[Rfam]
RNA sequence: CGCGCCACUCCUUUACUCGGAUCGUCCGGCACGUUCCUGCCGGUGAAGGGACACAUCA
Numbered sequence: 001c002g003c004g005c006c007a008c009u010c011c012u013u014u015a016c017u018c019g020g021a022u023c024g025u026c027c028g029g030c031a032c033g034u035u036c037c038u039g040c041c042g043g044u045g046a047a048g049g050g051a052c053a054c055a056u057c058a
Base pairs, nucleotide, nucleotide: 009050010049011048012047013046014045015044026043027042028041029040030039031038
The family of this 58-nucleotide RNA from Streptomyces benahoarensis is "msiK RNA". The base pairs follow the family's consensus structure, which is taken from published work. Lineage of the source: Bacteria > Actinomycetota > Actinomycetes > Kitasatosporales > Streptomyces.